Shown here is a 463-nucleotide part of an RNA from Gossypium anomalum, a member of the family "Microsporidia small subunit ribosomal RNA". The family is grouped with related families in Rfam's "SSU clan". Its family is annotated with ribosome and structural constituent of ribosome in the Gene Ontology. Taxonomically the source falls in Gossypium (Eukaryota, Euphyllophyta, eudicotyledons, Malvales). Rfam 15.1 lists 1,035 matches to the family in 436 species.
RNA sequence: AAGCAGAUUGAUAAUACGUGCAACAAACCCCGACUUCUGGAAGGGAUGCAUUUAUUAGAUAAAAGGUCGACGCGGGCUUUGCCCGUUGCUCUGAUGAUUCAUGAUAACUCGAGGGAUCGCACGGCCUUUGUGCCGGUGAUGCAUCAUUCAAAUUUCUGCCCUAUCAACUUUCGAUAGUAGGAUAGUGGCCUACUAUGGUGGUGACUGGUGACGGAGAAUUAGGGUUCGAUUCCGGAGAGGGAGCCUGAGAAACGGCUACCACAUCCAAGGAAGGCAGCAGGCGCGCAAAUUACCCAAUCCUGACACGGGGAGGUAGUGACAAUAAAUAAACAAUACGGGCUCUAUGAGUCUGGUAAUUGGAAUGAGUACAAUCUAAAUCCCUUAACGAGGAUCCAUUGGAGGGCAAGUUUGGUGCCAGAAGCCGCGGUAAUUCCAGCUCCAAUAGCGUAUAUUUAAGUUGUUG
Numbered sequence: 001a002a003g004c005a006g007a008u009u010g011a012u013a014a015u016a017c018g019u020g021c022a023a024c025a026a027a028c029c030c031c032g033a034c035u036u037c038u039g040g041a042a043g044g045g046a047u048g049c050a051u052u053u054a055u056u057a058g059a060u061a062a063a064a065g066g067u068c069g070a071c072g073c074g075g076g077c078u079u080u081g082c083c084c085g086u087u088g089c090u091c092u093g094a095u096g097a098u099u100c101a102u103g104a105u106a107a108c109u110c111g112a113g114g115g116a117u118c119g120c121a122c123g124g125c126c127u128u129u130g131u132g133c134c135g136g137u138g139a140u141g142c143a144u145c146a147u148u149c150a151a152a153u154u155u156c157u158g159c160c161c162u163a164u165c166a167a168c169u170u171u172c173g174a175u176a177g178u179a180g181g182a183u184a185g186u187g188g189c190c191u192a193c194u195a196u197g198g199u200g201g202u203g204a205c206u207g208g209u210g211a212c213g214g215a216g217a218a219u220u221a222g223g224g225u226u227c228g229a230u231u232c233c234g235g236a237g238a239g240g241g242a243g244c245c246u247g248a249g250a251a252a253c254g255g256c257u258a259c260c261a262c263a264u265c266c267a268a269g270g271a272a273g274g275c276a277g278c279a280g281g282c283g284c285g286c287a288a289a290u291u292a293c294c295c296a297a298u299c300c301u302g303a304c305a306c307g308g309g310g311a312g313g314u315a316g317u318g319a320c321a322a323u324a325a326a327u328a329a330a331c332a333a334u335a336c337g338g339g340c341u342c343u344a345u346g347a348g349u350c351u352g353g354u355a356a357u358u359g360g361a362a363u364g365a366g367u368a369c370a371a372u373c374u375a376a377a378u379c380c381c382u383u384a385a386c387g388a389g390g391a392u393c394c395a396u397u398g399g400a401g402g403g404c405a406a407g408u409u410u411g412g413u414g415c416c417a418g419a420a421g422c423c424g425c426g427g428u429a430a431u432u433c434c435a436g437c438u439c440c441a442a443u444a445g446c447g448u449a450u451a452u453u454u455a456a457g458u459u460g461u462u463g
Base pairs, nucleotide, nucleotide: 004039005038006037007036041453042452044450046448047447048446049445052325053324054323055322056321059317066282067281068280072278073277076082077081089237090236091235160208161207167199168198169197174196175195176194177193178192179191180190181189212234213233214232215231216227217226218225219224239260240259242257243256244255262273264271265270290315292314293313294312298310299309300308301307302306340389341388342387396442397441398440399439400438401437409436410435411434412433418425